[Rfam]
RNA sequence: CGAAUGAGGUUCCCGUAUCAGCAGCGACAGGGACGGGGGACCCAAUCCUUGUGGAGUUCACAGCAGUCGAUGAACUCCUUGGGGUGAAGUCCCGCCGGACUGUGAGGUCCGGCAGACCGGGUGAUCUCCCACCCGAACCCGACAGCUCACCUCGUAGGCGUCAGGAGAGGUACC
Numbered sequence: 001c002g003a004a005u006g007a008g009g010u011u012c013c014c015g016u017a018u019c020a021g022c023a024g025c026g027a028c029a030g031g032g033a034c035g036g037g038g039g040a041c042c043c044a045a046u047c048c049u050u051g052u053g054g055a056g057u058u059c060a061c062a063g064c065a066g067u068c069g070a071u072g073a074a075c076u077c078c079u080u081g082g083g084g085u086g087a088a089g090u091c092c093c094g095c096c097g098g099a100c101u102g103u104g105a106g107g108u109c110c111g112g113c114a115g116a117c118c119g120g121g122u123g124a125u126c127u128c129c130c131a132c133c134c135g136a137a138c139c140c141g142a143c144a145g146c147u148c149a150c151c152u153c154g155u156a157g158g159c160g161u162c163a164g165g166a167g168a169g170g171u172a173c174c
Stems, first nucleotide, its partner, number of pairs: 001157001005032001033155006043081002082140003090116002119134004
Shown here is a 174-nucleotide sequence from Occultella aeris, a member of the family "c-di-AMP riboswitch aptamer (ydaO/yuaA leader)". Pairs were carried over by alignment from the consensus structure. Rfam links the family to the GO terms cyclic-di-AMP binding and regulation of gene expression. A search with the family's covariance model found it, with a score of 58 bits.